A member of the RNA family "t44 RNA" from Hafnia alvei, 114 nucleotides long.
It scores 72 bits against the family's covariance model.
The organism belongs to Hafnia alvei, within Bacteria.
About the family: This family consists of a number of bacterial RNA genes of between 135 and 170 bases in length.
It is annotated as a small RNA.
Pairs were carried over by alignment from the consensus structure, which was predicted with LocARNA.
On this family, see Tjaden et al., Nucleic Acids Res 2002: "Transcriptome analysis of Escherichia coli using high-density oligonucleotide probe arrays".

RNA sequence: GCAAAGAAACGACAACAACACACACAUAUCGGCACGUGCGCCGGGGUGCCUUGCAGGAUGAGUCUUAGGACAAUGCCUUGCCGGGUCGGCUCAUGGGAUAUGUGGAGGCUUAAC
Numbered sequence: 001g002c003a004a005a006g007a008a009a010c011g012a013c014a015a016c017a018a019c020a021c022a023c024a025c026a027u028a029u030c031g032g033c034a035c036g037u038g039c040g041c042c043g044g045g046g047u048g049c050c051u052u053g054c055a056g057g058a059u060g061a062g063u064c065u066u067a068g069g070a071c072a073a074u075g076c077c078u079u080g081c082c083g084g085g086u087c088g089g090c091u092c093a094u095g096g097g098a099u100a101u102g103u104g105g106a107g108g109c110u111u112a113a114c
Stems, first nucleotide, its partner, number of pairs: 023104008035095004040090004048086004